[Rfam]
RNA sequence: GAAGGUUAAAAGCAAAUCCAUUGAAAGAUGGAGACGCAAAGCUAUCAGUCUAAAGCAAUGAUUAUUGCCAUGAUUGUCAGGUUGCCAAA
Numbered sequence: 001g002a003a004g005g006u007u008a009a010a011a012g013c014a015a016a017u018c019c020a021u022u023g024a025a026a027g028a029u030g031g032a033g034a035c036g037c038a039a040a041g042c043u044a045u046c047a048g049u050c051u052a053a054a055g056c057a058a059u060g061a062u063u064a065u066u067g068c069c070a071u072g073a074u075u076g077u078c079a080g081g082u083u084g085c086c087a088a089a
Stems, first nucleotide, its partner, number of pairs: 012037002017032006040083004045079001047077001048074003055068004